[Rfam]
RNA sequence: CUCACCCUGAGCCCGGCACAACCUGUUUACAAAAAGCCCUAGAGGCCACAAACUGCAGGUGGGAAAUUCGGUGGAACACAGCAGACGGGUCAUCGGGCAACCCUGUUCGAUGACCGACGCAACCCUAUCUGUGAAGACGCUGGCGGAAUCCAGUGAGCGUCCAAGCUGCCAGUAGAAAAUAGCCGCCUAGGUGGCAUGGGAGUGCAGCGGGCCGUCUGCUUGGCGCACGGCUCUUGUGAGACUUGUGUGGCCUGUUGAGUGCAAUUGCCAGGGUCCUUCCGUGGGACAACGCGAUACCGAUUACUCAGGAUGUG
Dot-bracket structure: (.((..(((..[[.[[[[..(((((..........(((.....))).........)))))........(((((..............((((..................................(.(((....))).)((..........))...........(((((............(((........)))........))))).))))....................................................]]]].]](((((.....))))).......)))))......)))..)).)

Record summary
The record is a 314-nucleotide sequence from Henningerozyma blattae, which matches "Nuclear RNase P" in Rfam. Rfam classes the family as a ribozyme. Lineage of the source: Eukaryota > Saccharomycetes > Saccharomycetaceae > Henningerozyma > Henningerozyma blattae. Gene Ontology terms of the family: ribonuclease P activity, ribonuclease P complex and tRNA processing. The match comes from Rfam's covariance-model search (52 bits). Rfam describes the family as follows. Ribonuclease P (RNase P) is a ubiquitous endoribonuclease, found in archaea, bacteria and eukarya as well as chloroplasts and mitochondria. Its best characterised activity is the generation of mature 5'-ends of tRNAs by cleaving the 5'-leader elements of precursor-tRNAs. Cellular RNase Ps are ribonucleoproteins. RNA from bacterial RNase Ps retains its catalytic activity in the absence of the protein subunit, i.e. it is a ribozyme. Isolated eukaryotic and archaeal RNase P RNA has not been shown to retain its catalytic function, but is still essential for the catalytic activity of the holoenzyme. Although the archaeal and eukaryotic holoenzyme s have a much greater protein content than the bacterial ones, the RNA cores from all the three lineages are homologous -- helices corresponding to P1, P2, P3, P4, and P10/11 are common to all cellular RNase P RNAs. Yet, there is considerable sequence variation, particularly among the eukaryotic RNAs.